[Rfam]
A member of the RNA family "mir-17 microRNA precursor family" from Gorilla gorilla, 80 nucleotides long. NCBI's taxonomy places the organism under Eukaryota, Primates, Catarrhini, Hominoidea, Gorilla. Rfam 15.1 lists 4,687 matches to the family in 648 species. Pairs were carried over by alignment from the consensus structure, which was predicted with RNAalifold. Gene Ontology terms of the family: miRNA-mediated post-transcriptional gene silencing and RISC complex. This family represents the microRNA (miRNA) precursor mir-17, family, which includes mir-20, mir-91, and mir-103. miRNAs are transcribed as ~70nt precursors (modelled here) and subsequently processed by the Dicer enzyme to give a ~22nt product. In this case the mature sequence comes from the 3' arm of the precursor.
RNA sequence: CCUAGUAGUACCAAAGUGCUCAUAGUGCAGGUAGUUUUGGCAUGACUCUACUGUAAUAUGGGCACUUCCAGUACUCUUGG
Numbered sequence: 001c002c003u004a005g006u007a008g009u010a011c012c013a014a015a016g017u018g019c020u021c022a023u024a025g026u027g028c029a030g031g032u033a034g035u036u037u038u039g040g041c042a043u044g045a046c047u048c049u050a051c052u053g054u055a056a057u058a059u060g061g062g063c064a065c066u067u068c069c070a071g072u073a074c075u076c077u078u079g080g
Base pairs, nucleotide, nucleotide: 005077007075008074010072011071014067015066016065017064018063019062020061021060022059023058024057026055027054028053030052031051032050033049034048

On this family, see Lagos-Quintana et al., Science 2001: "Identification of novel genes coding for small expressed RNAs".